[Rfam]
RNA sequence: UCACCAGGCCGGGCCCCUCUGGCGGCGCCACGCCGCGAUGUCGGACUGGAGGA
Number, nucleotide and partner (000 for none) at each position: 001u000002c000003a000004c000005c000006a047007g046008g000009c044010c043011g042012g041013g000014c000015c000016c000017c000018u000019c000020u000021g000022g036023c035024g034025g033026c032027g000028c000029c000030a000031c000032g026033c025034c024035g023036c022037g000038a000039u000040g000041u012042c011043g010044g009045a000046c007047u006048g000049g000050a000051g000052g000053a000